[Rfam]
RNA sequence: AUUUCAUACUGUUUUUCUUUUCGUAUAACCUUAAUGAUUGGAUUAAGGGUCUCUACUUGGAAACCGUAAAUUUCUAGCUACGAAAAAAUAUGUUCUUUGC
Numbered sequence: 001a002u003u004u005c006a007u008a009c010u011g012u013u014u015u016u017c018u019u020u021u022c023g024u025a026u027a028a029c030c031u032u033a034a035u036g037a038u039u040g041g042a043u044u045a046a047g048g049g050u051c052u053c054u055a056c057u058u059g060g061a062a063a064c065c066g067u068a069a070a071u072u073u074c075u076a077g078c079u080a081c082g083a084a085a086a087a088a089u090a091u092g093u094u095c096u097u098u099g100c
Base pairs, nucleotide, nucleotide: 018086019085020084021083022082023081024080025079029048030047031046032045033044034043035042057077058076059075060074061073062072063071